[Rfam]
RNA sequence: GGAAGUUUGGGUGAGUGGCUGAAACCAACAGUUUGCUAAACUGUCGUACGGGUAACCGUACCGGGGGUUCGAAUCCCCCAGCUUCCG
Numbered sequence: 001g002g003a004a005g006u007u008u009g010g011g012u013g014a015g016u017g018g019c020u021g022a023a024a025c026c027a028a029c030a031g032u033u034u035g036c037u038a039a040a041c042u043g044u045c046g047u048a049c050g051g052g053u054a055a056c057c058g059u060a061c062c063g064g065g066g067g068u069u070c071g072a073a074u075c076c077c078c079c080a081g082c083u084u085c086c087g
Stems, first nucleotide, its partner, number of pairs: 001086007010026003028044005063079005

Rfam assigns this 87-nucleotide sequence from Parabacteroides chinchillae to the family "tRNA". The family's consensus secondary structure is taken from published work. Lineage of the source: Bacteria > Bacteroidota > Bacteroidia > Bacteroidales > Parabacteroides. The match comes from Rfam's covariance-model search (56 bits).